The family of this 74-nucleotide RNA sequence from Myotis davidii is "mir-9229 microRNA precursor family". It scores 73 bits against the family's covariance model. Its family is annotated with RISC complex and miRNA-mediated post-transcriptional gene silencing in the Gene Ontology.
RNA sequence: GAGAUGCCCCUAUGGAGCACGACUUGCUUCAGUGGGUUUGGUGCUUACUGAGUCUGCCCCUUGAGUGUGUCACU
Numbered sequence: 001g002a003g004a005u006g007c008c009c010c011u012a013u014g015g016a017g018c019a020c021g022a023c024u025u026g027c028u029u030c031a032g033u034g035g036g037u038u039u040g041g042u043g044c045u046u047a048c049u050g051a052g053u054c055u056g057c058c059c060c061u062u063g064a065g066u067g068u069g070u071c072a073c074u
Stems, first nucleotide, its partner, number of pairs: 001073001003071005009065001011063002014060002017057003021054003029051008